[Rfam]
RNA sequence: UCGAUUUAAAAAUAAAUUACUUAUUUAAGUUAUGGAUUUGGCAUAACGUCUCUACGGGGCACCUAAGGCUCCACAAUAAGUAAGGAAAAACUUGGA
Numbered sequence: 001u002c003g004a005u006u007u008a009a010a011a012a013u014a015a016a017u018u019a020c021u022u023a024u025u026u027a028a029g030u031u032a033u034g035g036a037u038u039u040g041g042c043a044u045a046a047c048g049u050c051u052c053u054a055c056g057g058g059g060c061a062c063c064u065a066a067g068g069c070u071c072c073a074c075a076a077u078a079a080g081u082a083a084g085g086a087a088a089a090a091c092u093u094g095g096a
Stems, first nucleotide, its partner, number of pairs: 018082008029047006056072005
Dot-bracket structure: .................((((((((...((((((.......))))))........(((((.......)))))..))))))))..............

Shown here is a 96-nucleotide RNA from Streptococcus massiliensis, a member of the family "Purine riboswitch aptamer".
A search with the family's covariance model found it, with a score of 53 bits.
Taxonomically the source falls in Streptococcus (Bacteria, Bacillati, Bacilli, Lactobacillales).